Rfam assigns this 141-nucleotide RNA sequence from Polarella glacialis to the family "U4 spliceosomal RNA". Rfam classes the family as a spliceosomal small nuclear RNA. Rfam's curators write: U4 small nuclear RNA (U4 snRNA) is a component of the major U2-dependent spliceosome.
[Rfam]
RNA sequence: AUCUUUGCGGAAGAAGCACUAGCGCUAUCAGUGACGCUUGGCGGAAGUGCGUUGCUUGCUGCUGUACUUGAGAACUGCUCCAAUUCCCGUCAAGUUUGAUCGUCAAGGUCAUUUUUGUAAUUUCUACGCGGGCUUCGGCCC
Numbered sequence: 001a002u003c004u005u006u007g008c009g010g011a012a013g014a015a016g017c018a019c020u021a022g023c024g025c026u027a028u029c030a031g032u033g034a035c036g037c038u039u040g041g042c043g044g045a046a047g048u049g050c051g052u053u054g055c056u057u058g059c060u061g062c063u064g065u066a067c068u069u070g071a072g073a074a075c076u077g078c079u080c081c082a083a084u085u086c087c088c089g090u091c092a093a094g095u096u097u098g099a100u101c102g103u104c105a106a107g108g109u110c111a112u113u114u115u116u117g118u119a120a121u122u123u124c125u126a127c128g129c130g131g132g133c134u135u136c137g138g139c140c141c
Stems, first nucleotide, its partner, number of pairs: 021053005027048002035043003089118001091117004097111005130141004